[Rfam]
RNA sequence: CUGCGGUGACGAUCAACUCUUACCUACUAUGACAAAAACAAUGGUUAGACGUUACUCGUACUGUCUGAGCAG
Numbered sequence: 001c002u003g004c005g006g007u008g009a010c011g012a013u014c015a016a017c018u019c020u021u022a023c024c025u026a027c028u029a030u031g032a033c034a035a036a037a038a039c040a041a042u043g044g045u046u047a048g049a050c051g052u053u054a055c056u057c058g059u060a061c062u063g064u065c066u067g068a069g070c071a072g
Base pairs, nucleotide, nucleotide: 001072002071003070004069
RNA: Small nucleolar RNA sn2841